[Rfam]
RNA: Fluoride riboswitch aptamer (crcB RNA motif)
Nucleotides: 089
Stems, first nucleotide, its partner, number of pairs: 010026004016080003020076002056070004
Number, partner (000 for none) and nucleotide at each position: 001000a002000u003000u004000g005000c006000g007000g008000c009000u010026g011025g012024c013023g014000a015000u016080g017079g018078a019000u020076c021075u022000c023013c024012g025011c026010c027000u028000a029000g030000a031000u032000c033000g034000c035000c036000c037000g038000u039000c040000a041000a042000g043000g044000g045000u046000u047000g048000u049000c050000u051000g052000a053000a054000c055000c056070g057069c058068c059067c060000c061000a062000g063000c064000c065000c066000g067059g068058g069057g070056c071000u072000g073000a074000u075021g076020g077000c078018u079017c080016c081000u082000u083000u084000c085000c086000c087000u088000g089000a